[Rfam]
RNA: Histone 3' UTR stem-loop
Nucleotides: 046
Stems, first nucleotide, its partner, number of pairs: 006021006
Number, partner (000 for none) and nucleotide at each position: 001000c002000a003000u004000c005000a006021g007020g008019u009018u010017c011016u012000u013000u014000u015000c016011a017010g018009a019008a020007c021006c022000a023000c024000a025000c026000a027000u028000g029000c030000u031000u032000a033000c034000a035000a036000a037000a038000g039000a040000g041000a042000u043000a044000u045000u046000u